[Rfam]
RNA sequence: AAGUGGAACUAAGCGCCUGGACUAGUAAUGGACGACAUGAAAACUAGUUGACGAGGAGGAGGUUUAUCGAUUUUUCGGCGGAUGCCUCCCGGUUGUAUUAGCCAAUCGAUAGCACUAUUUUAAAAUAUUAGGGCAACUUAAUGCACAAAGAAUAGGGCAUGCUAAUCG
Numbered sequence: 001a002a003g004u005g006g007a008a009c010u011a012a013g014c015g016c017c018u019g020g021a022c023u024a025g026u027a028a029u030g031g032a033c034g035a036c037a038u039g040a041a042a043a044c045u046a047g048u049u050g051a052c053g054a055g056g057a058g059g060a061g062g063u064u065u066a067u068c069g070a071u072u073u074u075u076c077g078g079c080g081g082a083u084g085c086c087u088c089c090c091g092g093u094u095g096u097a098u099u100a101g102c103c104a105a106u107c108g109a110u111a112g113c114a115c116u117a118u119u120u121u122a123a124a125a126u127a128u129u130a131g132g133g134c135a136a137c138u139u140a141a142u143g144c145a146c147a148a149a150g151a152a153u154a155g156g157g158c159a160u161g162c163u164a165a166u167c168g
Stems, first nucleotide, its partner, number of pairs: 020049007029040001058089005067078004090108006112158002115155004126143007
RNA: glmS glucosamine-6-phosphate activated ribozyme aptamer